[Rfam]
RNA: SAM/SAH riboswitch aptamer
Organism: Rhodobacteraceae bacterium SB2
RNA sequence: GAUACGCCACAACGGCUUCCUGACGUGGCAGAUUUUUCAAAUCGGAGCG
Numbered sequence: 001g002a003u004a005c006g007c008c009a010c011a012a013c014g015g016c017u018u019c020c021u022g023a024c025g026u027g028g029c030a031g032a033u034u035u036u037u038c039a040a041a042u043c044g045g046a047g048c049g
Base pairs, nucleotide, nucleotide: 005031006029007028008027009026010025013022014021015048016047017046019045020044